[Rfam]
Notes:
S15-Methanomicrobia ribosomal protein leader: an 86-nucleotide RNA sequence. Clan: Ribosomal Protein S15 Leader clan.

Nucleotides: 086
Base pairs, nucleotide, nucleotide: 001021002020003019004018005017006016029086030085031084032083035081036080040055041054042053043052044051056075057074058073059072060071061070062069
Number, partner (000 for none) and nucleotide at each position: 001021a002020g003019c004018a005017c006016u007000g008000u009000u010000u011000c012000u013000a014000c015000u016006g017005g018004u019003g020002c021001u022000g023000g024000c025000a026000g027000a028000u029086g030085u031084a032083a033000g034000u035081c036080c037000g038000a039000c040055g041054u042053g043052c044051a045000c046000c047000a048000c049000g050000c051044u052043g053042c054041a055040c056075g057074g058073g059072c060071c061070u062069g063000g064000c065000a066000g067000a068000a069062c070061a071060g072059g073058c074057c075056u076000c077000c078000u079000g080036g081035g082000a083032u084031u085030a086029c